[Rfam]
RNA sequence: CAAACAAAAUUCAUAGGAAAAUGAACAAUUCAUUACUAAACGGAUAUUGGUGGCGCUACUUACAACUCUCAAAGUCGUAAGGAAGAGCAUCAUGCGUUUAUAGUGAAUCAGAAAUAUAAAAAGCCUGUC
Number, nucleotide and partner (000 for none) at each position: 001c000002a000003a000004a000005c000006a000007a000008a000009a000010u000011u000012c000013a000014u000015a000016g000017g000018a000019a000020a000021a000022u000023g000024a000025a000026c000027a000028a000029u000030u000031c000032a000033u000034u000035a000036c103037u102038a101039a000040a099041c000042g097043g000044a000045u094046a093047u092048u000049g091050g090051u089052g088053g000054c000055g000056c085057u084058a000059c082060u081061u000062a000063c077064a000065a075066c074067u073068c000069u000070c000071a000072a000073a067074g066075u065076c000077g063078u000079a000080a000081g060082g059083a000084a057085g056086a000087g000088c052089a051090u050091c049092a047093u046094g045095c000096g000097u042098u000099u040100a000101u038102a037103g036104u000105g000106a000107a000108u000109c000110a000111g000112a000113a000114a000115u000116a000117u000118a000119a000120a000121a000122a000123g000124c000125c000126u000127g000128u000129c000
RNA: Bacteroidete tryptophan peptide leader RNA